A member of the RNA family "Peptidase-S11 RNA" from Klebsiella indica, 83 nucleotides long.
Nucleotides: 083
Base pairs, nucleotide, nucleotide: 016045017044018043020042021041022040023039024038025037026036027035046062047061048060049059050058051057
Number, partner (000 for none) and nucleotide at each position: 001000g002000u003000u004000a005000u006000g007000a008000u009000a010000a011000u012000u013000u014000u015000u016045g017044c018043c019000a020042g021041c022040g023039g024038c025037g026036u027035g028000a029000c030000u031000a032000c033000g034000c035027u036026g037025c038024g039023c040022c041021g042020c043018g044017g045016c046062g047061u048060a049059c050058g051057u052000u053000u054000a055000u056000a057051a058050c059049g060048u061047g062046c063000a064000a065000a066000a067000a068000u069000a070000c071000u072000u073000u074000u075000c076000a077000g078000a079000a080000u081000g082000u083000u